[Rfam]
RNA sequence: AAAUCCCUGCGGUGCUCGUCGGCGAUUGAUGAUUGUUGAACCAACACCAAUCACACGGGAGUCCAUAUUCAGGCGUGCCUGCGGGCCGCUUCUGAGGACGCCCACCUGAACGUUGGGUUCAGACCACCUAGCUGACGGCAAAUGCGGGGAUUUU
Numbered sequence: 001a002a003a004u005c006c007c008u009g010c011g012g013u014g015c016u017c018g019u020c021g022g023c024g025a026u027u028g029a030u031g032a033u034u035g036u037u038g039a040a041c042c043a044a045c046a047c048c049a050a051u052c053a054c055a056c057g058g059g060a061g062u063c064c065a066u067a068u069u070c071a072g073g074c075g076u077g078c079c080u081g082c083g084g085g086c087c088g089c090u091u092c093u094g095a096g097g098a099c100g101c102c103c104a105c106c107u108g109a110a111c112g113u114u115g116g117g118u119u120c121a122g123a124c125c126a127c128c129u130a131g132c133u134g135a136c137g138g139c140a141a142a143u144g145c146g147g148g149g150a151u152u153u154u
Base pairs, nucleotide, nucleotide: 002152003151004150005149006148007147008146009145010144011143013140014139015138017137018136019135037121038120039119040118041117042116057103058102059101061099062098063097064096066094071091072090073089074088075087078085079084
Background
The record is a 154-nucleotide sequence from Candidatus Velamenicoccus archaeovorus, which matches "6S / SsrS RNA" in Rfam. From the family's description: E. coli 6S RNA was the first non coding RNA to be sequenced, but its function was unknown until recently. It consists of 184 nucleotides that fold into an extended hairpin structure with a large single-stranded internal bulge. The 6S RNA specifically associates with RNA polymerase holoenzyme containing the sigma70 specificity factor. This interaction represses expression from a sigma70-dependent promoter during stationary phase. 6S RNA homologs have recently been identified in most bacterial genomes. Pairs were carried over by alignment from the consensus structure, which is taken from published work.